[Rfam]
RNA sequence: AACAUUGCCUGAACAAUAGCACUGACUCGUUUUUGAAGCAGCAAGUGCUAUUUGUUGAGGCAAUGUCA
Numbered sequence: 001a002a003c004a005u006u007g008c009c010u011g012a013a014c015a016a017u018a019g020c021a022c023u024g025a026c027u028c029g030u031u032u033u034u035g036a037a038g039c040a041g042c043a044a045g046u047g048c049u050a051u052u053u054g055u056u057g058a059g060g061c062a063a064u065g066u067c068a
Base pairs, nucleotide, nucleotide: 004064005063006062007061008060009059010058013055014054015053016052018049019048020047021046022045023044026041027040
Shown here is a 68-nucleotide RNA sequence from Channa argus, a member of the family "miR-430 microRNA precursor family".
NCBI's taxonomy places the organism under Eukaryota, Chordata, Anabantaria, Channoidei, Channa.